Background: This 141-nucleotide RNA from Atlantibacter hermannii belongs to the Rfam family "sraL Hfq binding RNA".
RNA sequence: AUCGGUGCAAACCGGAACCUCCCAAGAUAUUACCCAUGAGGGGCACCGACGUCGGGGGAAACCCUCCCGUAAAAAAGCGGGAUAGAGCGAAAGACAAAGACCGGAACAAAACGAAAGCGCCGCAGUUGGCGCUUUCGUUUU
Numbered sequence: 001a002u003c004g005g006u007g008c009a010a011a012c013c014g015g016a017a018c019c020u021c022c023c024a025a026g027a028u029a030u031u032a033c034c035c036a037u038g039a040g041g042g043g044c045a046c047c048g049a050c051g052u053c054g055g056g057g058g059a060a061a062c063c064c065u066c067c068c069g070u071a072a073a074a075a076a077g078c079g080g081g082a083u084a085g086a087g088c089g090a091a092a093g094a095c096a097a098a099g100a101c102c103g104g105a106a107c108a109a110a111a112c113g114a115a116a117g118c119g120c121c122g123c124a125g126u127u128g129g130c131g132c133u134u135u136c137g138u139u140u141u
Stems, first nucleotide, its partner, number of pairs: 002049007014022002033040001051095003055064003065082006109140013

Its family is annotated with negative regulation of gene expression in the Gene Ontology. The SraL RNA ('sra' for small RNA), discovered in E. coli, and later in Salmonella Tiphimurium. It is expressed only in stationary phase. It may possibly play a role in Salmonella virulence. The major stationary phase regulator RpoS is transcriptionally regulating SraL and directly binds to the sraL gene promoter.